Overview:
Shown here is a 98-nucleotide RNA sequence from Bagarius yarrelli, a member of the family "Small nucleolar RNA SNORD16". Taxonomically the source falls in Bagarius (Eukaryota, Euteleostomi, Actinopteri, Sisoridae). The literature on the family includes a 1993 paper in EMBO J by Fragapane et al., "A novel small nucleolar RNA (U16) is encoded inside a ribosomal protein intron and originates by processing of the pre-mRNA". By type it is a C/D-box small nucleolar RNA. Rfam 15.1 lists 1,321 matches to the family in 655 species.
Nucleotides: 098
Stems, first nucleotide, its partner, number of pairs: 001098003021081004030071005039063002041057005
Number, partner (000 for none) and nucleotide at each position: 001098u002097g003096c004000c005000a006000u007000g008000a009000u010000g011000g012000u013000g014000u015000a016000a017000u018000u019000u020000g021081c022080g023079u024078c025000u026000u027000a028000c029000u030071c031070u032069g033068u034067g035000a036000u037000c038000a039063g040062c041057g042056a043055c044054a045053g046000u047000u048000g049000c050000c051000u052000g053045c054044u055043g056042u057041c058000u059000a060000a061000u062040g063039c064000u065000g066000g067034c068033g069032c070031a071030g072000a073000a074000g075000a076000a077000u078024g079023a080022c081021g082000a083000c084000a085000u086000a087000u088000a089000a090000g091000a092000c093000u094000g095000a096003g097002c098001a

Background
A search with the family's covariance model found it, with a score of 96 bits.